[Rfam]
Notes: Shown here is a 128-nucleotide RNA sequence from Nannospalax galili, a member of the family "Small nucleolar RNA SNORA25". Rfam 15.1 lists 1,129 matches to the family in 449 species. Rfam links the family to the GO terms nucleolus and RNA processing. It is annotated as an H/ACA-box small nucleolar RNA. Pairs were carried over by alignment from the consensus structure, which was predicted with RNAfold. Rfam describes the family as follows. ACA25 is a member of the H/ACA class of snoRNA that guide the sites of modification of uridines to pseudouridines.
RNA sequence: AGGUCACUUUAAAGAGGGCUUGUUGGACUGUAAACCCAAAGCUCUUAAUGCUGUGACCAAAGAUUGAGACUCUCCACAGAAUGCCAGAGGCUCUUUCUGGUGCUGCGUUCUUCUGAGGAGAUACAGGC
Numbered sequence: 001a002g003g004u005c006a007c008u009u010u011a012a013a014g015a016g017g018g019c020u021u022g023u024u025g026g027a028c029u030g031u032a033a034a035c036c037c038a039a040a041g042c043u044c045u046u047a048a049u050g051c052u053g054u055g056a057c058c059a060a061a062g063a064u065u066g067a068g069a070c071u072c073u074c075c076a077c078a079g080a081a082u083g084c085c086a087g088a089g090g091c092u093c094u095u096u097c098u099g100g101u102g103c104u105g106c107g108u109u110c111u112u113c114u115g116a117g118g119a120g121a122u123a124c125a126g127g128c
Base pairs, nucleotide, nucleotide: 002058003057004056005055006054007053014046015045016044017043018042019041020040021039023038026036071121072120073119074118075117078114079113080112081111087106089104090103091102093100094099